A member of the RNA family "Chlorobi-1 RNA" from Chloroherpeton thalassium, 64 nucleotides long. Pairs were carried over by alignment from the consensus structure, which is taken from published work.

RNA sequence: AAAGCACUUCACGCCCGUGAAGUGUGGCAGGUGAUGUGGGGGACACCUGCUACGAAAGGCGGUU
Numbered sequence: 001a002a003a004g005c006a007c008u009u010c011a012c013g014c015c016c017g018u019g020a021a022g023u024g025u026g027g028c029a030g031g032u033g034a035u036g037u038g039g040g041g042g043a044c045a046c047c048u049g050c051u052a053c054g055a056a057a058g059g060c061g062g063u064u
Base pairs, nucleotide, nucleotide: 005024006023007022008021009020010019011018012017025052026051027050028049029048030047031046032045033044
It is annotated as a small RNA. Taxonomically the source falls in Chloroherpeton thalassium (Bacteria, Chlorobiota, Chlorobiia, Chloroherpetonaceae).